RNA: mir-1302 microRNA precursor family
RNA sequence: UUUUUAGUUUAAGUAUGUUCCAUGCAAUACCUGGGACAUAUUUACACUAAAA
Numbered sequence: 001u002u003u004u005u006a007g008u009u010u011a012a013g014u015a016u017g018u019u020c021c022a023u024g025c026a027a028u029a030c031c032u033g034g035g036a037c038a039u040a041u042u043u044a045c046a047c048u049a050a051a052a
Base pairs, nucleotide, nucleotide: 006048007047008046010044011043012042014040015039016038018036019035020034021033